Notes:
The record is a 54-nucleotide sequence from Anguilla anguilla, which matches "UnaL2 LINE 3' element" in Rfam. For this family Rfam cites "Solution structure of an RNA stem-loop derived from the 3' conserved region of eel LINE UnaL2" (Baba et al., RNA, 2004). By type it is a cis-regulatory element. Rfam describes the family as follows. The eel long interspersed element (LINE) UnaL2 and its partner short interspersed element (SINE) share a conserved 3' tail containing a stem-loop that is critical for their retrotransposition. Presumably, the first step of retrotransposition is the recognition of their 3' tails by UnaL2-encoded reverse transcriptase. The solution structure of a 17-nucleotide RNA derived from the 3' tail of UnaL2 was determined by NMR. Rfam links the family to the GO term transposition, RNA-mediated. Taxonomically the source falls in Anguilla (Eukaryota, Craniata, Actinopterygii, Elopocephalai). The match comes from Rfam's covariance-model search (59 bits).
RNA sequence: CUAUAUAAGUUGUGUAAGUUGCUCUGGAUAAGAGCAUCUACUAAAUGCCUGUAA
Numbered sequence: 001c002u003a004u005a006u007a008a009g010u011u012g013u014g015u016a017a018g019u020u021g022c023u024c025u026g027g028a029u030a031a032g033a034g035c036a037u038c039u040a041c042u043a044a045a046u047g048c049c050u051g052u053a054a
Base pairs, nucleotide, nucleotide: 013043014041015040016039020036021035022034023033024032025031